RNA: Bacterial large signal recognition particle RNA
RNA sequence: CCGUACUAGAUGGGGAGGUAGCGGUGCCCUAUAACCUGCAACCCGCUAUAGCAGGGUCGAAUUCCCAGGCUGAGGCCUGACCAUUGUAAGGUCUGGCAUAAGUAAGUGGCGUUGAUACUUGAGUCCUGCGCAACGGAAAUUUGCGAACCCCGUCAGGUCCGGAAGGAAGCAGCGGUAAGCAAACACUUCCGUGUGCCGCAGGGGAGCUUGAGUGGAGCUAACUGCUUAUGUAACGCUUAUGGUGGCAGGUCGAAGCUGGGUGUACGG
Numbered sequence: 001c002c003g004u005a006c007u008a009g010a011u012g013g014g015g016a017g018g019u020a021g022c023g024g025u026g027c028c029c030u031a032u033a034a035c036c037u038g039c040a041a042c043c044c045g046c047u048a049u050a051g052c053a054g055g056g057u058c059g060a061a062u063u064c065c066c067a068g069g070c071u072g073a074g075g076c077c078u079g080a081c082c083a084u085u086g087u088a089a090g091g092u093c094u095g096g097c098a099u100a101a102g103u104a105a106g107u108g109g110c111g112u113u114g115a116u117a118c119u120u121g122a123g124u125c126c127u128g129c130g131c132a133a134c135g136g137a138a139a140u141u142u143g144c145g146a147a148c149c150c151c152g153u154c155a156g157g158u159c160c161g162g163a164a165g166g167a168a169g170c171a172g173c174g175g176u177a178a179g180c181a182a183a184c185a186c187u188u189c190c191g192u193g194u195g196c197c198g199c200a201g202g203g204g205a206g207c208u209u210g211a212g213u214g215g216a217g218c219u220a221a222c223u224g225c226u227u228a229u230g231u232a233a234c235g236c237u238u239a240u241g242g243u244g245g246c247a248g249g250u251c252g253a254a255g256c257u258g259g260g261u262g263u264a265c266g267g
Base pairs, nucleotide, nucleotide: 001267002266003265004264005263006262009058010057011056012030013029014028015027017025019023035055036054037053038052039051064260065259066258068257069256070255071254074251075250076249077248078247081245082244083243084242085241086240087239088238089237090236094232095231098229099228100227101226102225103224106222107221108219109218110217116214117213118212119211120210121209122208123207124206125202126201127200128199129198130197131193132192134191135190136189137188138187140183141182142181143180144179150175151174152173153172158167159166160165